[Rfam]
RNA sequence: CCCGAGAGUAGAAGCGUUCACCAGUCCAGUGCAUUCGUCGCGGGCUGUUCGGGAAUUGCUCUUGAA
Numbered sequence: 001c002c003c004g005a006g007a008g009u010a011g012a013a014g015c016g017u018u019c020a021c022c023a024g025u026c027c028a029g030u031g032c033a034u035u036c037g038u039c040g041c042g043g044g045c046u047g048u049u050c051g052g053g054a055a056u057u058g059c060u061c062u063u064g065a066a
Base pairs, nucleotide, nucleotide: 005062006061007060008059009058010057015051018053019052022047023046024045025044026043027042
RNA: Xanthine riboswitch aptamer (NMT1 RNA)